[Rfam]
RNA sequence: CUUGUAUAAAGGCAAAGCAGUCGAAAGGCUGUGACGCAAAGUUUCAGGCCUGUGGCUCCGGCUAAGGCGGCUGGGCUGCCGGG
Numbered sequence: 001c002u003u004g005u006a007u008a009a010a011g012g013c014a015a016a017g018c019a020g021u022c023g024a025a026a027g028g029c030u031g032u033g034a035c036g037c038a039a040a041g042u043u044u045c046a047g048g049c050c051u052g053u054g055g056c057u058c059c060g061g062c063u064a065a066g067g068c069g070g071c072u073g074g075g076c077u078g079c080c081g082g083g
Stems, first nucleotide, its partner, number of pairs: 012037002017032006040077004045073003048068003055062002

This 83-nucleotide RNA sequence from Planococcus halotolerans belongs to the Rfam family "c-di-GMP-I riboswitch aptamer". A search with the family's covariance model found it, with a score of 65 bits. Rfam's curators write: GEMM was predicted in a large-scale screen for bacterial structured RNA regulatory elements.